[Rfam]
RNA: 7SK RNA
RNA sequence: GGAUGUGAGGGUGAUCUGGCUGUGACAUUUGUCACCCCAUUGAUUGCCAGGGGUGAUUCAGCUGAUCUGGGUGGCUAGGCAGGUGUCAUCUUCCUCCCUCACUGCUCCAUGUGCAUCCCUCUCAAAGUUGCACACUUGGUUGAAGGGGACAAUCUUCCCUGACAGAGAUGUAGCAUUCAUCCAUCAAGGGCAUACAGUAUCUGAACUCCCCUGAUGGAACCUCCAAACAAGCUCAAGGUCCUUUUGAAGAAGAAUGUAGGGUGGUCAAGCUUUCAAGACUGCAGACACAUCCAAGUGAGGCACUGCAUGGGGCAGUGCCUGAAGGG
Numbered sequence: 001g002g003a004u005g006u007g008a009g010g011g012u013g014a015u016c017u018g019g020c021u022g023u024g025a026c027a028u029u030u031g032u033c034a035c036c037c038c039a040u041u042g043a044u045u046g047c048c049a050g051g052g053g054u055g056a057u058u059c060a061g062c063u064g065a066u067c068u069g070g071g072u073g074g075c076u077a078g079g080c081a082g083g084u085g086u087c088a089u090c091u092u093c094c095u096c097c098c099u100c101a102c103u104g105c106u107c108c109a110u111g112u113g114c115a116u117c118c119c120u121c122u123c124a125a126a127g128u129u130g131c132a133c134a135c136u137u138g139g140u141u142g143a144a145g146g147g148g149a150c151a152a153u154c155u156u157c158c159c160u161g162a163c164a165g166a167g168a169u170g171u172a173g174c175a176u177u178c179a180u181c182c183a184u185c186a187a188g189g190g191c192a193u194a195c196a197g198u199a200u201c202u203g204a205a206c207u208c209c210c211c212u213g214a215u216g217g218a219a220c221c222u223c224c225a226a227a228c229a230a231g232c233u234c235a236a237g238g239u240c241c242u243u244u245u246g247a248a249g250a251a252g253a254a255u256g257u258a259g260g261g262u263g264g265u266c267a268a269g270c271u272u273u274c275a276a277g278a279c280u281g282c283a284g285a286c287a288c289a290u291c292c293a294a295g296u297g298a299g300g301c302a303c304u305g306c307a308u309g310g311g312g313c314a315g316u317g318c319c320u321g322a323a324g325g326g
Stems, first nucleotide, its partner, number of pairs: 001108003005102007013093002018090002024087010035074002037070003042067004046062002117170001119167003122139004127135002140162003147158003201269002206264002209261005221252002224249001228246004298320009
Dot-bracket structure: (((.(((((((.((...((....((((((((((.(((((..((((((.............)).)))))))..))...)))))))))).)).))..)))))))...)))........(.(((((((.((.....))))))(((....(((......))).)))..)))..)..............................((...((.(((((.......((.(...((((...........))))..).))....))))).))...))............................(((((((((.....)))))))))......